[Rfam]
RNA sequence: AUAAAAAAACCUGCAACUGAUCAAUAAGUUGCAGGUUUCUUUUUAUUUUCUUUUCGAAAAUAAAAAGAAUAAAGGGAGAGGAGAAACCGGAGGAAGAACUUAUGGGGAAUGGUAAGUCUUCUCCGAAU
Numbered sequence: 001a002u003a004a005a006a007a008a009a010c011c012u013g014c015a016a017c018u019g020a021u022c023a024a025u026a027a028g029u030u031g032c033a034g035g036u037u038u039c040u041u042u043u044u045a046u047u048u049u050c051u052u053u054u055c056g057a058a059a060a061u062a063a064a065a066a067g068a069a070u071a072a073a074g075g076g077a078g079a080g081g082a083g084a085a086a087c088c089g090g091a092g093g094a095a096g097a098a099c100u101u102a103u104g105g106g107g108a109a110u111g112g113u114a115a116g117u118c119u120u121c122u123c124c125g126a127a128u
Stems, first nucleotide, its partner, number of pairs: 009036009037076005046063002049060001051058001088125004093121004098117005

This 128-nucleotide sequence from Gracilibacillus ureilyticus belongs to the Rfam family "ylbH leader". Pairs were carried over by alignment from the consensus structure. Rfam's curators write: This family is a putative regulatory RNA structure that is found upstream of the ylbH gene in B. subtilis and related low GC Gram-positive bacteria. Its family is annotated with regulation of gene expression in the Gene Ontology. The organism belongs to Gracilibacillus, within Bacteria. A search with the family's covariance model found it, with a score of 85 bits.